[Rfam]
RNA sequence: AAAUGAAGGAAGCAUGGUAAUGUGCACAGAAAUUGAUCCAGUGAUGGAGGGUCACCAUGUCUGCUCCUUAUGAUGCUUCUCUUUUAUGGAGGCUUUGAAUUUGGGGCCUGGUUUAUACCCACAUUU
Numbered sequence: 001a002a003a004u005g006a007a008g009g010a011a012g013c014a015u016g017g018u019a020a021u022g023u024g025c026a027c028a029g030a031a032a033u034u035g036a037u038c039c040a041g042u043g044a045u046g047g048a049g050g051g052u053c054a055c056c057a058u059g060u061c062u063g064c065u066c067c068u069u070a071u072g073a074u075g076c077u078u079c080u081c082u083u084u085u086a087u088g089g090a091g092g093c094u095u096u097g098a099a100u101u102u103g104g105g106g107c108c109u110g111g112u113u114u115a116u117a118c119c120c121a122c123a124u125u126u
Base pairs, nucleotide, nucleotide: 012025013024014023015022049109050108051107052106053105060098061097063093064092065091
Notes
A member of the RNA family "Small nucleolar RNA snoR100" from Populus tomentosa, 126 nucleotides long. A reference for the family is Marker et al. (2002), "Experimental RNomics: identification of 140 candidates for small non-messenger RNAs in the plant Arabidopsis thaliana", Curr Biol. Gene Ontology terms of the family: RNA processing and nucleolus. It is annotated as an H/ACA-box small nucleolar RNA. It scores 100 bits against the family's covariance model. Pairs were carried over by alignment from the consensus structure, which was predicted with WAR. Rfam 15.1 lists 1,851 matches to the family in 220 species.